[Rfam]
RNA: Small nucleolar RNA SNORA84
Organism: Myripristis murdjan
RNA sequence: GCCUGGUGGUUCCUAUAGACAGCUCCAAAGUGCUGAUCUAUGGGUUUUGAUUGGCAGGCACAUAUUGACUCUGCGAUUUUAUGCAUGGGAGCUGUCACUAUAGCAGUCUUCCAUAGCCCGGUUGCAGAAACAUUU
Number, nucleotide and partner (000 for none) at each position: 001g059002c058003c057004u056005g000006g000007u049008g048009g000010u000011u000012c044013c043014u042015a041016u040017a039018g000019a000020c035021a034022g033023c032024u000025c000026c000027a000028a000029a000030g000031u000032g023033c022034u021035g020036a000037u000038c000039u017040a016041u015042g014043g013044g012045u000046u000047u000048u008049g007050a000051u000052u000053g000054g000055c000056a004057g003058g002059c001060a000061c000062a000063u000064a000065u000066u000067g000068a000069c000070u000071c127072u000073g125074c124075g123076a122077u121078u120079u000080u000081a000082u000083g117084c116085a114086u113087g112088g111089g000090a109091g108092c106093u105094g104095u103096c000097a000098c000099u000100a000101u000102a000103g095104c094105a093106g092107u000108c091109u090110u000111c088112c087113a086114u085115a000116g084117c083118c000119c000120g078121g077122u076123u075124g074125c073126a000127g071128a000129a000130a000131c000132a000133u000134u000135u000